Description: Shown here is a 56-nucleotide RNA sequence from Mycolicibacterium confluentis, a member of the family "L31-Actinobacteria ribosomal protein leader".
[Rfam]
RNA sequence: CAGGUUCCGGUUCACGUCUGUAUUUCUCCAGGUCAGGAGCGGACGACCCGGCGACC
Numbered sequence: 001c002a003g004g005u006u007c008c009g010g011u012u013c014a015c016g017u018c019u020g021u022a023u024u025u026c027u028c029c030a031g032g033u034c035a036g037g038a039g040c041g042g043a044c045g046a047c048c049c050g051g052c053g054a055c056c
Base pairs, nucleotide, nucleotide: 003056004055005054007051008050009049010048015045016044017043018042019041020040021039023037024036025035

Source information:
On this family, see Eckert and Weinberg, BMC Microbiol 2020: "Discovery of 20 novel ribosomal leader candidates in bacteria and archaea".